[Rfam]
RNA sequence: AGUAAUAAACAAAUAUUGGUUUAGUGAGUAGACUCGGGGGCGGUUCCCGACGCCUCCAAAUAAAUGGGGGCGACAUAUGUAUCGAUACUCGCAUAAAUGGUUAUUUUUUUACUCGGAGUGAAUACCGCAAAAAAUUCAAAAACUUAUAAAUGCAAACGAUAAUAACGUUGCUGUUAACGAAAACAAAGCAGUUGUUGCUAA
Numbered sequence: 001a002g003u004a005a006u007a008a009a010c011a012a013a014u015a016u017u018g019g020u021u022u023a024g025u026g027a028g029u030a031g032a033c034u035c036g037g038g039g040g041c042g043g044u045u046c047c048c049g050a051c052g053c054c055u056c057c058a059a060a061u062a063a064a065u066g067g068g069g070g071c072g073a074c075a076u077a078u079g080u081a082u083c084g085a086u087a088c089u090c091g092c093a094u095a096a097a098u099g100g101u102u103a104u105u106u107u108u109u110u111a112c113u114c115g116g117a118g119u120g121a122a123u124a125c126c127g128c129a130a131a132a133a134a135u136u137c138a139a140a141a142a143c144u145u146a147u148a149a150a151u152g153c154a155a156a157c158g159a160u161a162a163u164a165a166c167g168u169u170g171c172u173g174u175u176a177a178c179g180a181a182a183a184c185a186a187a188g189c190a191g192u193u194g195u196u197g198c199u200a201a
Stems, first nucleotide, its partner, number of pairs: 001113005014103002017100001024092003028088003034050005051072007114127003